[Rfam]
RNA sequence: GAUAAUGGGGGUGAAAAGCCCCCACGCCGUAAGCCCAAGGUUUCCUGUUCAACGUUCAUCGGAGCAGGGUGAGUCGGCCCCUAAGGCGAGGCAGAGAUGCGUAGCUGAUGGGAAGCAGGUUAAUAUUCCUGCACCGUCGUUAGAUGCGAUGGGGGGACGGAUCGCGGAAGGUUGUCAGGCGGUUGGAAGAGCCUGUUCUUAACUUAUAGAAGGUGCUUAGGCAAAUCCGGGCACAUAAUUCAAGGGGUUGAGACGAGUGAAUUUAUUCACGAAGCAAUCGGAAGUGGUUCCAAGAAAAGCCUCUAAGCUUCAGUCUAACGAGACCGUACCGCAAACCGACACAGGUGGGCGAGAUGAGUAUUCUAAGGCGCU
Number, nucleotide and partner (000 for none) at each position: 001g000002a000003u000004a000005a000006u024007g023008g022009g021010g020011g019012u000013g000014a000015a000016a000017a000018g000019c011020c010021c009022c008023c007024a006025c370026g369027c368028c367029g000030u000031a000032a000033g350034c349035c348036c347037a000038a000039g330040g329041u000042u000043u000044c068045c067046u066047g065048u064049u063050c000051a000052a000053c061054g060055u000056u000057c000058a000059u000060c054061g053062g000063a049064g048065c047066a046067g045068g044069g000070u000071g000072a000073g000074u000075c326076g325077g324078c000079c000080c111081c110082u000083a000084a000085g106086g105087c104088g000089a102090g000091g100092c099093a098094g000095a000096g000097a000098u093099g092100c091101g000102u089103a000104g087105c086106u085107g000108a000109u000110g081111g080112g000113a000114a000115g132116c131117a130118g129119g128120u000121u000122a000123a000124u000125a000126u000127u000128c119129c118130u117131g116132c115133a000134c000135c322136g000137u321138c320139g319140u318141u317142a316143g315144a314145u313146g308147c307148g000149a000150u000151g303152g302153g301154g300155g000156g000157a000158c000159g290160g289161a288162u287163c000164g000165c000166g000167g000168a000169a000170g279171g278172u277173u276174g275175u000176c195177a194178g193179g192180c191181g000182g000183u000184u000185g000186g000187a000188a000189g000190a000191g180192c179193c178194u177195g176196u000197u253198c252199u000200u000201a248202a000203c246204u245205u000206a000207u000208a000209g241210a240211a000212g000213g234214u233215g232216c231217u230218u229219a000220g228221g227222c000223a000224a000225a000226u000227c221228c220229g218230g217231g216232c215233a214234c213235a000236u000237a000238a000239u000240u210241c209242a000243a000244g000245g204246g203247g000248u201249u000250g000251a000252g198253a197254c000255g000256a000257g270258u269259g268260a267261a266262u000263u000264u000265a000266u261267u260268c259269a258270c257271g000272a000273a000274g000275c174276a173277a172278u171279c170280g000281g000282a000283a000284g000285u000286g000287g162288u161289u160290c159291c000292a000293a000294g000295a000296a000297a000298a000299g000300c154301c153302u152303c151304u000305a000306a000307g147308c146309u000310u000311c000312a000313g145314u144315c143316u142317a141318a140319c139320g138321a137322g135323a000324c077325c076326g075327u000328a000329c040330c039331g000332c000333a000334a000335a000336c345337c344338g000339a000340c000341a000342c000343a000344g337345g336346u000347g036348g035349g034350c033351g000352a364353g363354a362355u000356g000357a000358g000359u000360a000361u000362u354363c353364u352365a000366a000367g028368g027369c026370g025371c000372u000
Rfam assigns this 372-nucleotide part of an RNA to the family "Bacterial large subunit ribosomal RNA". Its Rfam clan is "LSU clan". It scores 2790 bits against the family's covariance model.